[Rfam]
Nucleotides: 164
Stems, first nucleotide, its partner, number of pairs: 012122003016048006023042005049090004054086001056083001058081001060079004092117001096112001099109002138163006146155001148153001
Number, partner (000 for none) and nucleotide at each position: 001000g002000u003000a004000c005000u006000u007000a008000u009000c010000u011000g012122g013121c014120a015000g016048g017047g018046g019045a020044g021043a022000u023042a024041c025040c026039a027038c028000a029000a030000u031000c032000a033000u034000g035000a036000a037000g038027g039026u040025g041024g042023u043021u044020u045019u046018c047017c048016c049090a050089g051088g052087g053000u054086g055000a056083g057000u058081u059000u060079u061078a062077u063076c064000c065000a066000u067000u068000g069000c070000a071000c072000u073000c074000c075000a076063g077062a078061u079060g080000c081058a082000c083056u084000g085000a086054c087052c088051c089050c090049u091000g092117c093000a094000u095000c096112u097000u098000c099109c100108u101000c102000a103000a104000a105000u106000g107000u108100g109099g110000g111000u112096a113000a114000c115000u116000c117092g118000a119000a120014u121013g122012c123000a124000u125000a126000a127000u128000u129000u130000g131000u132000g133000g134000u135000a136000g137000u138163g139162g140161g141160g142159g143158a144000c145000u146155g147000a148153g149000u150000u151000u152000g153148c154000g155146c156000u157000u158143u159142c160141c161140u162139c163138u164000g

This 164-nucleotide RNA sequence from Acinonyx jubatus belongs to the Rfam family "U1 spliceosomal RNA".
Gene Ontology terms of the family: pre-mRNA 5'-splice site binding, mRNA 5'-splice site recognition and U1 snRNP.
Taxonomically the source falls in Acinonyx (Eukaryota, Opisthokonta, Deuterostomia, Felinae).
About the family: U1 is a small nuclear RNA (snRNA) component of the spliceosome (involved in pre-mRNA splicing). Its 5' end forms complementary base pairs with the 5' splice junction, thus defining the 5' donor site of an intron. There are significant differences in sequence and secondary structure between metazoan and yeast U1 snRNAs, the latter being much longer (568 nucleotides as compared to 164 nucleotides in human). Nevertheless, secondary structure predictions suggest that all U1 snRNAs share a 'common core' consisting of helices I, II, the proximal region of III, and IV. This family does not contain the larger yeast sequences.